Shown here is a 57-nucleotide RNA sequence from Ipomoea triloba, a member of the family "Plastid-psbA-3 3UTR RNA".
[Rfam]
RNA sequence: AAAGGAGCAAUACCCCAUCUUGUUUAGAACAAGAAAGUGGUUAUUGCUCCCUUAUUU
Numbered sequence: 001a002a003a004g005g006a007g008c009a010a011u012a013c014c015c016c017a018u019c020u021u022g023u024u025u026a027g028a029a030c031a032a033g034a035a036a037g038u039g040g041u042u043a044u045u046g047c048u049c050c051c052u053u054a055u056u057u
Base pairs, nucleotide, nucleotide: 001053002052004050005049006048007047008046009045010044011043012042014040018034019033020032021031022030
Description:
Rfam's curators write: Plastid psbA-3 is a non-coding RNA (ncRNA) present in plastids. It was identified in inverted repeat sequences in the 3 prime untranslate region (3UTR) of photosystem II quinone-binding protein (psbA). It is annotated as a cis-regulatory element. The family's consensus secondary structure was predicted with LocARNA. The sequence is in the family's curated seed alignment. Clan: Plastid-psbA 3UTR RNA clan.